[Rfam]
RNA sequence: ACCCCAUAUUCAAAACGAGAAUGAACAAUAUUUUAAACAAUACUUGGUGGUGGAUCAACUUACGUCAGACGUCGUGAGAGGCACCGCUAUAGUAUAAAUUAAAACUUAAUAUACAAAAAGGCUUGUC
Numbered sequence: 001a002c003c004c005c006a007u008a009u010u011c012a013a014a015a016c017g018a019g020a021a022u023g024a025a026c027a028a029u030a031u032u033u034u035a036a037a038c039a040a041u042a043c044u045u046g047g048u049g050g051u052g053g054a055u056c057a058a059c060u061u062a063c064g065u066c067a068g069a070c071g072u073c074g075u076g077a078g079a080g081g082c083a084c085c086g087c088u089a090u091a092g093u094a095u096a097a098a099u100u101a102a103a104a105c106u107u108a109a110u111a112u113a114c115a116a117a118a119a120g121g122c123u124u125g126u127c
Stems, first nucleotide, its partner, number of pairs: 036100002040095005046088002049085004059078003062072003
RNA: Bacteroidete tryptophan peptide leader RNA